[Rfam]
RNA sequence: GUUUAGCCCUGAUUGAAACGGCAUCCUUUUUUAUUUUUCUUAAAAAAGAUAUAGUAGAAAGCAGGAAAUAGC
Numbered sequence: 001g002u003u004u005a006g007c008c009c010u011g012a013u014u015g016a017a018a019c020g021g022c023a024u025c026c027u028u029u030u031u032u033a034u035u036u037u038u039c040u041u042a043a044a045a046a047a048g049a050u051a052u053a054g055u056a057g058a059a060a061g062c063a064g065g066a067a068a069u070a071g072c
Stems, first nucleotide, its partner, number of pairs: 009064003013060002018055002023050003029045005
RNA: Flavo-1 RNA
Organism: Polaribacter sp. ALD11